[Rfam]
A member of the RNA family "Small nucleolar RNA SNORA79" from Ovis aries, 147 nucleotides long. Rfam classes the family as an H/ACA-box small nucleolar RNA. On this family, see Schattner et al., RNA 2006: "A computational screen for mammalian pseudouridylation guide H/ACA RNAs". Rfam's curators write: ACA65 (SNORA79) is a member of the H/ACA class of snoRNAs that guide the sites of modification of uridines to pseudouridines.

RNA sequence: UCAUGGCUCUUUAUCUCACUGCUUAGAGUCUUAAGUAGUGGGAUUUUAGUCCAUCAUAUAUCUAAGCUGACUUAUUUUCAGGCAGGGCACCAUGGGGAUAGACUAGCUGUCCAUUAGGCCUUCUGAUUUUUAUGAAGUCAAAUAAUU
Numbered sequence: 001u002c003a004u005g006g007c008u009c010u011u012u013a014u015c016u017c018a019c020u021g022c023u024u025a026g027a028g029u030c031u032u033a034a035g036u037a038g039u040g041g042g043a044u045u046u047u048a049g050u051c052c053a054u055c056a057u058a059u060a061u062c063u064a065a066g067c068u069g070a071c072u073u074a075u076u077u078u079c080a081g082g083c084a085g086g087g088c089a090c091c092a093u094g095g096g097g098a099u100a101g102a103c104u105a106g107c108u109g110u111c112c113a114u115u116a117g118g119c120c121u122u123c124u125g126a127u128u129u130u131u132a133u134g135a136a137g138u139c140a141a142a143u144a145a146u147u
Base pairs, nucleotide, nucleotide: 001056003054004053005052006051008049014043015042016041017040018039020037021036022035023034069139070138071137072136073135083125084124085123086122087120090117096112097111098110099109100108